[Rfam]
RNA sequence: CAAUGCCUUUGUUUGACCAUGUUGUGUGCUAAUAUGACAAAUUAAAAAUUUUAGUUAAGCAUUUGGGCUGGCCUUAAUAUUUAACAAAAAGCUAAUUUUUUUUGUGGGCCCACUUUCGAUAGUUAGUCACUAGCGGAAGCUCAGGAAGAGCAGCUUUGGUCUCUCAGCACUUUAAUCCUGCUUCUCGUUCCCACUUAAUUUCGCAGUUUAUUGUCCUUGACUUCUACCACGAGAAAAAAAAUUAGGAAAAUACAACACUGCCCGUGCAGAGUUUUCUGAGCGGAAUGAAAAAAUUAAAUUAAUGUCCAAGUUAUGAGUAAUUACUUCGUUGUAGGGAGGGAGCAGAGCCAAAGGAAAUUUUUAAAAUUGUUAAAUAUAUAAAGGAAGAACCAUUCCUGAUUACUUUACUUUUUCGAUUCUUGUCAGUUAUCUUAGUAAAAUACAAAACUCUAUAAAGAACCACAGGAAAAUCAGCAGCAAUGACAAGCAUUGACAUUAACAACUUACAAAAUACCUUUCAACAAGCUAUGAAUAUGAGCGGCUCUGCAGGCGCUGU
Number, nucleotide and partner (000 for none) at each position: 001c492002a491003a490004u489005g488006c487007c000008u000009u000010u061011g060012u059013u058014u057015g056016a055017c054018c000019a052020u000021g050022u000023u000024g000025u039026g038027u037028g000029c000030u000031a000032a000033u000034a000035u000036g000037a027038c026039a025040a000041a000042u000043u000044a000045a000046a000047a000048a000049u000050u021051u000052u019053a000054g017055u016056u015057a014058a013059g012060c011061a010062u000063u483064u482065g481066g000067g478068c477069u476070g475071g000072c000073c000074u000075u084076a000077a082078u000079a000080u000081u000082u077083a000084a075085c000086a000087a000088a000089a000090a000091g000092c000093u000094a000095a000096u000097u470098u469099u468100u467101u466102u465103u464104g463105u462106g461107g460108g000109c340110c339111c338112a000113c335114u334115u333116u000117c331118g330119a329120u328121a000122g000123u320124u319125a318126g000127u316128c315129a314130c000131u000132a311133g000134c000135g307136g306137a305138a000139g000140c000141u000142c000143a000144g000145g157146a156147a155148g154149a000150g000151c000152a000153g000154c148155u147156u146157u145158g000159g299160u298161c000162u296163c000164u000165c000166a000167g253168c000169a251170c000171u246172u245173u244174a243175a242176u241177c000178c000179u239180g000181c000182u235183u234184c233185u232186c231187g230188u229189u000190c000191c000192c000193a000194c000195u000196u000197a000198a000199u000200u000201u000202c000203g214204c213205a212206g211207u000208u000209u000210a000211u206212u205213g204214u203215c000216c000217u000218u000219g000220a000221c000222u000223u000224c000225u000226a000227c000228c000229a188230c187231g186232a185233g184234a183235a182236a000237a000238a000239a179240a000241a176242u175243u174244a173245g172246g171247a000248a000249a000250a000251u169252a000253c167254a000255a000256c000257a000258c000259u000260g000261c000262c283263c282264g281265u280266g000267c278268a277269g276270a275271g000272u000273u000274u000275u270276c269277u268278g267279a000280g265281c264282g263283g262284a000285a000286u000287g000288a000289a000290a000291a000292a000293a000294u000295u000296a162297a000298a160299u159300u000301a000302a000303u000304g000305u137306c136307c135308a000309a000310g000311u132312u000313a000314u129315g128316a127317g000318u125319a124320a123321u000322u000323a000324c000325u000326u000327c000328g120329u119330u118331g117332u000333a115334g114335g113336g000337a000338g111339g110340g109341a000342g000343c000344a451345g450346a449347g448348c000349c000350a000351a362352a361353g360354g359355a000356a000357a000358u000359u354360u353361u352362u351363a000364a000365a000366a000367u445368u444369g443370u442371u000372a000373a000374a000375u000376a417377u416378a000379u000380a411381a410382a409383g408384g406385a405386a404387g403388a401389a400390c000391c000392a000393u000394u000395c000396c000397u000398g000399a000400u389401u388402a000403c387404u386405u385406u384407a000408c383409u382410u381411u380412u000413u000414c000415g000416a377417u376418u000419c000420u000421u000422g000423u000424c000425a000426g436427u435428u434429a433430u000431c000432u000433u429434a428435g427436u426437a000438a000439a000440a000441u000442a370443c369444a368445a367446a000447a000448c347449u346450c345451u344452a000453u000454a000455a000456a000457g000458a000459a000460c107461c106462a105463c104464a103465g102466g101467a100468a099469a098470a097471u000472c000473a000474g000475c070476a069477g068478c067479a000480a000481u065482g064483a063484c000485a000486a000487g006488c005489a004490u003491u002492g001493a000494c000495a000496u000497u000498a000499a000500c000501a000502a000503c000504u000505u000506a000507c000508a000509a000510a000511a000512u000513a000514c000515c000516u000517u532518u531519c530520a529521a000522c000523a000524a000525g000526c000527u000528a000529u520530g519531a518532a517533u000534a000535u000536g000537a554538g553539c552540g551541g000542c549543u548544c000545u000546g000547c000548a543549g542550g000551c540552g539553c538554u537555g000556u000
RNA: srg1